[Rfam]
Nucleotides: 085
Stems, first nucleotide, its partner, number of pairs: 012037002017032006040079004046075002048071003055065004
Number, partner (000 for none) and nucleotide at each position: 001000a002000a003000c004000u005000g006000u007000u008000a009000a010000a011000g012037g013036c014000a015000a016000g017032c018031u019030c020029g021028u022027c023000g024000a025000a026000a027022g028021g029020c030019g031018g032017g033000u034000a035000c036013g037012c038000a039000a040079a041078g042077c043076c044000a045000u046075g047074g048071g049070u050069c051000u052000a053000a054000u055065g056064c057063u058062a059000u060000u061000g062058u063057a064056g065055c066000g067000a068000u069050g070049a071048c072000a073000g074047c075046c076043g077042g078041u079040u080000g081000c082000c083000a084000g085000g